Small Cajal body specific RNA 4: a 128-nucleotide RNA from Microtus ochrogaster. It scores 128 bits against the family's covariance model. Rfam 15.1 lists 634 matches to the family in 510 species. The base pairs follow the family's consensus structure, which was predicted with RNAfold. scaRNAs are a specific class of small nuclear RNAs which localise to the Cajal bodies and guide the modification of RNA polymerase II transcribed spliceosomal RNAs U1, U2, U4, U5 and U12. Its Rfam clan is "SCARNA4 clan". Rfam links the family to the GO terms nucleolus, Cajal body and RNA processing.
RNA sequence: UCUGGAGGACCAAGAAGGCUGAGUCUGAUGAAGCAAGACUUGGCUGAUACACUCCUCCUAGACAAAGGGGUAGAGAGAACAGUCCUUACUGGAGAAAACCACGGGGCUGACAAUACUACCCAACAUUU
Numbered sequence: 001u002c003u004g005g006a007g008g009a010c011c012a013a014g015a016a017g018g019c020u021g022a023g024u025c026u027g028a029u030g031a032a033g034c035a036a037g038a039c040u041u042g043g044c045u046g047a048u049a050c051a052c053u054c055c056u057c058c059u060a061g062a063c064a065a066a067g068g069g070g071u072a073g074a075g076a077g078a079a080c081a082g083u084c085c086u087u088a089c090u091g092g093a094g095a096a097a098a099c100c101a102c103g104g105g106g107c108u109g110a111c112a113a114u115a116c117u118a119c120c121c122a123a124c125a126u127u128u
Base pairs, nucleotide, nucleotide: 002061003060004058005057006056007055008054009053017045018044019043021041022040023039024038025037026036068121069120070119071118080109081108082107083106084105085104086103090101091100092099